[Rfam]
RNA sequence: CCAAAGGCUCUUUUCAGAGCCACCCACGCACUUAUGAAAAGGGCUU
Numbered sequence: 001c002c003a004a005a006g007g008c009u010c011u012u013u014u015c016a017g018a019g020c021c022a023c024c025c026a027c028g029c030a031c032u033u034a035u036g037a038a039a040a041g042g043g044c045u046u
Stems, first nucleotide, its partner, number of pairs: 006021006